[Rfam]
mir-4798 microRNA precursor family: a 75-nucleotide RNA from Homo sapiens.
RNA sequence: AAGUACAACUUCGGUAUACUUUGUGAAUUGGCUUUUACAAAAGACCAACUCACGAAGUAUACCGAAGUCAUACUU
Numbered sequence: 001a002a003g004u005a006c007a008a009c010u011u012c013g014g015u016a017u018a019c020u021u022u023g024u025g026a027a028u029u030g031g032c033u034u035u036u037a038c039a040a041a042a043g044a045c046c047a048a049c050u051c052a053c054g055a056a057g058u059a060u061a062c063c064g065a066a067g068u069c070a071u072a073c074u075u
Stems, first nucleotide, its partner, number of pairs: 001075005008068019028048004032043004
Source information:
The base pairs follow the family's consensus structure, which was predicted with RNAalifold. The organism belongs to Homo, within Eukaryota. Rfam links the family to the GO terms miRNA-mediated post-transcriptional gene silencing and RISC complex.